Overview:
This 346-nucleotide part of an RNA from Peptoclostridium acidaminophilum belongs to the Rfam family "Bacterial large subunit ribosomal RNA". The match comes from Rfam's covariance-model search (2978 bits). Pairs were carried over by alignment from the consensus structure, which is taken from published work.

RNA sequence: CGAGAGAACUAUUGUUAAGGAACUCGGCAAAAUUACCCCGUAACUUAGGGAGAAGGGGUGCCCCGUUAGUGUGCAAGCAUGAGGGGGCCGCAGAGAAUAGGCCCAAGCGACUGUUUACCAAAAACACAGGUCUCUGCUAAGUCGCAAGACGAAGUAUAGGGGCUGACGCCUGCCCGGUGCUGGAAGGUUAAGGGGAUGUGUUAGAGCAAUCGAAGCACUGAACUUAAGCCCCAGUAAACGGCGGCCGUAACUAUAACGGUCCUAAGGUAGCGAAAUUCCUUGUCGGGUAAGUUCCGACCCGCACGAAAGGCGUAACGAUUUGGGCGCUGUCUCAACAAUAGACUCG
Number, nucleotide and partner (000 for none) at each position: 001c346002g345003a344004g343005a000006g000007a000008a000009c341010u340011a339012u338013u337014g336015u335016u334017a000018a332019g331020g330021a000022a000023c000024u000025c000026g000027g000028c000029a000030a000031a000032a000033u000034u000035a059036c058037c057038c056039c055040g000041u000042a000043a000044c049045u000046u000047a000048g000049g044050g000051a000052g000053a000054a000055g039056g038057g037058g036059u035060g088061c087062c086063c085064c084065g000066u000067u082068a000069g080070u079071g078072u077073g000074c000075a000076a000077g072078c071079a070080u069081g000082a067083g000084g064085g063086g062087g061088c060089c093090g000091c000092a000093g089094a000095g000096a000097a000098u000099a000100g000101g325102c324103c323104c322105a321106a320107g319108c317109g316110a000111c000112u126113g125114u124115u000116u000117a000118c000119c000120a000121a000122a000123a000124a114125c113126a112127c000128a000129g164130g163131u162132c161133u160134c159135u158136g157137c154138u000139a000140a000141g150142u149143c148144g000145c000146a000147a000148g143149a142150c141151g000152a000153a000154g137155u000156a000157u136158a135159g134160g133161g132162g131163c130164u129165g000166a000167c312168g311169c310170c309171u000172g242173c241174c240175c000176g000177g239178u238179g235180c234181u233182g232183g231184a000185a000186g230187g229188u228189u000190a000191a000192g224193g223194g000195g000196a000197u000198g218199u217200g216201u215202u000203a000204g211205a210206g000207c000208a000209a000210u205211c204212g000213a000214a000215g201216c200217a199218c198219u000220g000221a000222a000223c193224u192225u000226a000227a000228g188229c187230c186231c183232c182233a181234g180235u179236a000237a000238a178239c177240g174241g173242c172243g261244g260245c259246c258247g257248u256249a000250a000251c000252u000253a000254u000255a000256a248257c247258g246259g245260u244261c243262c266263u000264a000265a000266g262267g000268u000269a000270g000271c000272g299273a000274a000275a000276u000277u000278c000279c000280u000281u000282g298283u297284c296285g295286g294287g293288u000289a000290a000291g000292u000293u287294c286295c285296g284297a283298c282299c272300c000301g000302c000303a000304c000305g000306a000307a000308a000309g170310g169311c168312g167313u000314a000315a000316c109317g108318a000319u107320u106321u105322g104323g103324g102325c101326g000327c000328u000329g000330u020331c019332u018333c000334a016335a015336c014337a013338a012339u011340a010341g009342a000343c004344u003345c002346g001